[Rfam]
RNA sequence: GUCAUCAUAUGAUGAAUAUAUUCUUUAAUCUUAGGACACCUUUGGACACAGCUUUUAUGGCUGUGAAUGAAAAUGAUUUUCAUUCUGAUGACGAC
Numbered sequence: 001g002u003c004a005u006c007a008u009a010u011g012a013u014g015a016a017u018a019u020a021u022u023c024u025u026u027a028a029u030c031u032u033a034g035g036a037c038a039c040c041u042u043u044g045g046a047c048a049c050a051g052c053u054u055u056u057a058u059g060g061c062u063g064u065g066a067a068u069g070a071a072a073a074u075g076a077u078u079u080u081c082a083u084u085c086u087g088a089u090g091a092c093g094a095c
Stems, first nucleotide, its partner, number of pairs: 001095003005091003045049001
Small nucleolar RNA snoR31/Z110/Z27: a 95-nucleotide sequence from Phtheirospermum japonicum. From the family's description: This family contains several related snoRNAs including R31, Z27 and Z110. Pairs were carried over by alignment from the consensus structure, which was predicted with PFOLD. The family has 8 seed sequences and 571 matches in Rfam 15.1. It scores 62 bits against the family's covariance model. It is annotated as a C/D-box small nucleolar RNA. Gene Ontology terms of the family: nucleolus and RNA processing.